RNA sequence: GGUAGUAGCAAAUAUUCAAACGAGAACUUUGAAGGCCGAAGUGGAGAAGGGUUCCAUGUGAACAGCAGUUGAACAUGGGUCAGUCGGUCCUGAGAGACAGGCGAACGCCGUUCGGAAGGGACGGGCGAUGUCCUCUGUCGCCCUCGGCCGAUCGAAAGGGAGUCGGGUUCAGAUCCCCGAACCCGGAGUGGCAGAGACAGGCGCCCGUCGCAGGGCGUCCAGUGCUGUGACGCGACCGAUCCCGGAGAAGCCGGCGGGAGCCCCGGGGAGAGUUCUCUUUUCUUUGUGAAGGGCAGGGCACCCUGGAAUGGGUUCGCCCUGAGAGAGGGGCCCGCGCCUUGGAAAGCGUUGCGGUUCCGGCGGCGUCCGGUGAGCUCUCGCUGGCCCUUGAAAAUCCGGGGAAGAUGGUAUAAAUCUCGCGCCGGGCCGUACCUAUAUCCGCAGCAGAUCUACAAGGUGAACAGCCUCUGGCAUGUU
Numbered sequence: 001g002g003u004a005g006u007a008g009c010a011a012a013u014a015u016u017c018a019a020a021c022g023a024g025a026a027c028u029u030u031g032a033a034g035g036c037c038g039a040a041g042u043g044g045a046g047a048a049g050g051g052u053u054c055c056a057u058g059u060g061a062a063c064a065g066c067a068g069u070u071g072a073a074c075a076u077g078g079g080u081c082a083g084u085c086g087g088u089c090c091u092g093a094g095a096g097a098c099a100g101g102c103g104a105a106c107g108c109c110g111u112u113c114g115g116a117a118g119g120g121a122c123g124g125g126c127g128a129u130g131u132c133c134u135c136u137g138u139c140g141c142c143c144u145c146g147g148c149c150g151a152u153c154g155a156a157a158g159g160g161a162g163u164c165g166g167g168u169u170c171a172g173a174u175c176c177c178c179g180a181a182c183c184c185g186g187a188g189u190g191g192c193a194g195a196g197a198c199a200g201g202c203g204c205c206c207g208u209c210g211c212a213g214g215g216c217g218u219c220c221a222g223u224g225c226u227g228u229g230a231c232g233c234g235a236c237c238g239a240u241c242c243c244g245g246a247g248a249a250g251c252c253g254g255c256g257g258g259a260g261c262c263c264c265g266g267g268g269a270g271a272g273u274u275c276u277c278u279u280u281u282c283u284u285u286g287u288g289a290a291g292g293g294c295a296g297g298g299c300a301c302c303c304u305g306g307a308a309u310g311g312g313u314u315c316g317c318c319c320u321g322a323g324a325g326a327g328g329g330g331c332c333c334g335c336g337c338c339u340u341g342g343a344a345a346g347c348g349u350u351g352c353g354g355u356u357c358c359g360g361c362g363g364c365g366u367c368c369g370g371u372g373a374g375c376u377c378u379c380g381c382u383g384g385c386c387c388u389u390g391a392a393a394a395u396c397c398g399g400g401g402a403a404g405a406u407g408g409u410a411u412a413a414a415u416c417u418c419g420c421g422c423c424g425g426g427c428c429g430u431a432c433c434u435a436u437a438u439c440c441g442c443a444g445c446a447g448a449u450c451u452a453c454a455a456g457g458u459g460a461a462c463a464g465c466c467u468c469u470g471g472c473a474u475g476u477u
Stems, first nucleotide, its partner, number of pairs: 015033006034474001035472003043453001045451002049433002054078006063071002085429003089159002094153002096112003100109003120145002163180005183425004213418003218412001223234003241400006250385004255380007263370003267285005290340005301329004309321004347365006440447001455467004
The record is a 477-nucleotide part of an RNA from Eleutherodactylus coqui, which matches "Eukaryotic large subunit ribosomal RNA" in Rfam. Pairs were carried over by alignment from the consensus structure, which is taken from published work. The source organism's lineage runs through Eukaryota, Craniata, Euteleostomi, Hyloidea and Eleutherodactylus.